[Rfam]
RNA sequence: GUCAGCAUCCCGCUCUAAAGAGAUGGGGCUUAGUGCCUCGUUAAUUUAGAUAGCUGACCAGCCUAAGUCCUACGAGGGCUACGUUGCAUUUAAGAGCCAAAGUUCUCACCUUGGGAUGCUUGCCAGUUCCAUGCUCUGAAAUCAAACAGUUAAAAGUUUACGAGGGGUAAAGCGGUGCUAUCUGAAUGUGCCGGAAUGCAACAAAGGAAAUUCUCGAAACUAC
Numbered sequence: 001g002u003c004a005g006c007a008u009c010c011c012g013c014u015c016u017a018a019a020g021a022g023a024u025g026g027g028g029c030u031u032a033g034u035g036c037c038u039c040g041u042u043a044a045u046u047u048a049g050a051u052a053g054c055u056g057a058c059c060a061g062c063c064u065a066a067g068u069c070c071u072a073c074g075a076g077g078g079c080u081a082c083g084u085u086g087c088a089u090u091u092a093a094g095a096g097c098c099a100a101a102g103u104u105c106u107c108a109c110c111u112u113g114g115g116a117u118g119c120u121u122g123c124c125a126g127u128u129c130c131a132u133g134c135u136c137u138g139a140a141a142u143c144a145a146a147c148a149g150u151u152a153a154a155a156g157u158u159u160a161c162g163a164g165g166g167g168u169a170a171a172g173c174g175g176u177g178c179u180a181u182c183u184g185a186a187u188g189u190g191c192c193g194g195a196a197u198g199c200a201a202c203a204a205a206g207g208a209a210a211u212u213c214u215c216g217a218a219a220c221u222a223c
Base pairs, nucleotide, nucleotide: 001058002057003056004055005054006053007051009028010027011025012024014021015020062207063206064205066080067079068078069077070076083202084201085200086199087198088197089196090195091194106139107138110133112131113130114129115128116127117126120217121216122213142185143184144183146181148179149178150177154176156173157172158171159170160168161167

This 223-nucleotide RNA from Okeania sp. KiyG1 belongs to the Rfam family "HNH endonuclease-associated RNA and ORF (HEARO) RNA". The match comes from Rfam's covariance-model search (94 bits). The family's RNA type in Rfam is non-coding RNA gene. Pairs were carried over by alignment from the consensus structure, which is taken from published work. On this family, see Weinberg et al., Nature 2009: "Exceptional structured noncoding RNAs revealed by bacterial metagenome analysis".